[Rfam]
Nucleotides: 073
Base pairs, nucleotide, nucleotide: 007067008066009065010064011063012062013061014060015059016058017056022050023049026047027046028045029044
Number, partner (000 for none) and nucleotide at each position: 001000u002000c003000a004000c005000g006000a007067a008066a009065g010064u011063g012062g013061a014060g015059g016058g017056u018000a019000a020000g021000a022050u023049c024000u025000a026047c027046a028045c029044u030000a031000a032000a033000u034000g035000u036000u037000u038000c039000a040000a041000a042000u043000c044029a045028g046027u047026g048000a049023g050022a051000u052000u053000c054000u055000u056017a057000u058016u059015c060014c061013u062012c063011c064010g065009c066008u067007u068000a069000c070000c071000u072000g073000u